[Rfam]
RNA sequence: CAAGCAAGUCCGAGAGGGUUAGUUGAAUGUACAGAAGUCAGCAGAAGCCAUAGUAGGCAAGUUGUUGCAACAGGUUGCUGAAGGGC
Numbered sequence: 001c002a003a004g005c006a007a008g009u010c011c012g013a014g015a016g017g018g019u020u021a022g023u024u025g026a027a028u029g030u031a032c033a034g035a036a037g038u039c040a041g042c043a044g045a046a047g048c049c050a051u052a053g054u055a056g057g058c059a060a061g062u063u064g065u066u067g068c069a070a071c072a073g074g075u076u077g078c079u080g081a082a083g084g085g086c
Stems, first nucleotide, its partner, number of pairs: 001025002004023002007020005038045002047086003056079005

Description
Shown here is an 86-nucleotide RNA from Paenibacillus sp. FSL H8-0548, a member of the family "Group II catalytic intron D1-D4-1". Lineage of the source: Bacteria > Bacillota > Bacilli > Paenibacillaceae > Paenibacillus. A reference for the family is Bonen and Vogel (2001), "The ins and outs of group II introns", Trends Genet. Group II introns are found in rRNA, tRNA and mRNA of organelles in fungi, plants and protists, and also in mRNA in bacteria.